[Rfam]
RNA sequence: GCCGAGCUUGGUUGCGCAAGCUUGUGACCCAAGUGGAGGUGGUAAGGUGAUGGAAUGGGGCAGGCUUCCCUAUUGAGCUGGUAUCCGAUAUCGAUUUUAAUCGGCUGCCCAUUGCAAGUUAUGGAGUCGAGCCAUGGGGUUUGGGCGGAUGCCCGGUGCUUGGCUUCUUCUAAGGUGGAGGGCAAUGCGUGAGGCUGGAUUUACAGAGCCAACGAAAACCUCCCACUCUUUGCAGUCCAAGCAUAAUGGACCAUGUCAGUCGGAUCCGAAUUUGGCCCUGUGGGGAUGCCCCCAACCGAACCAUCAUUUUU
Numbered sequence: 001g002c003c004g005a006g007c008u009u010g011g012u013u014g015c016g017c018a019a020g021c022u023u024g025u026g027a028c029c030c031a032a033g034u035g036g037a038g039g040u041g042g043u044a045a046g047g048u049g050a051u052g053g054a055a056u057g058g059g060g061c062a063g064g065c066u067u068c069c070c071u072a073u074u075g076a077g078c079u080g081g082u083a084u085c086c087g088a089u090a091u092c093g094a095u096u097u098u099a100a101u102c103g104g105c106u107g108c109c110c111a112u113u114g115c116a117a118g119u120u121a122u123g124g125a126g127u128c129g130a131g132c133c134a135u136g137g138g139g140u141u142u143g144g145g146c147g148g149a150u151g152c153c154c155g156g157u158g159c160u161u162g163g164c165u166u167c168u169u170c171u172a173a174g175g176u177g178g179a180g181g182g183c184a185a186u187g188c189g190u191g192a193g194g195c196u197g198g199a200u201u202u203a204c205a206g207a208g209c210c211a212a213c214g215a216a217a218a219c220c221u222c223c224c225a226c227u228c229u230u231u232g233c234a235g236u237c238c239a240a241g242c243a244u245a246a247u248g249g250a251c252c253a254u255g256u257c258a259g260u261c262g263g264a265u266c267c268g269a270a271u272u273u274g275g276c277c278c279u280g281u282g283g284g285g286a287u288g289c290c291c292c293c294a295a296c297c298g299a300a301c302c303a304u305c306a307u308u309u310u311u
Stems, first nucleotide, its partner, number of pairs: 001040003004023007029036002044310010056298002059293002063290003067286002070283004075278001077276003081267001083265006091258001094256002100254002103251001105249003110241001112240003116236001118233002121230001123229005129166006136159001138157001141156006167175002177223005186216001188214003195206003
RNA: Plant signal recognition particle RNA
Organism: Cucurbita maxima